[Rfam]
RNA sequence: CUCUGAAUAACAGGGCAGUGCUCCCUCGGCAGAGUACACAACCAGAUGCAGGGAAAGCAAUGAUCUGCAGCCCUGCUCUGGCUCUGCCGAAGGAGAGCUGCCCUGCCAUUCAACA
Numbered sequence: 001c002u003c004u005g006a007a008u009a010a011c012a013g014g015g016c017a018g019u020g021c022u023c024c025c026u027c028g029g030c031a032g033a034g035u036a037c038a039c040a041a042c043c044a045g046a047u048g049c050a051g052g053g054a055a056a057g058c059a060a061u062g063a064u065c066u067g068c069a070g071c072c073c074u075g076c077u078c079u080g081g082c083u084c085u086g087c088c089g090a091a092g093g094a095g096a097g098c099u100g101c102c103c104u105g106c107c108a109u110u111c112a113a114c115a
Base pairs, nucleotide, nucleotide: 005111006110007109008108011105012104013103014102015101016100017099018098019097021095022094023093024092027089028088029087030086031085032084033083034082035081
RNA: mir-399 microRNA precursor family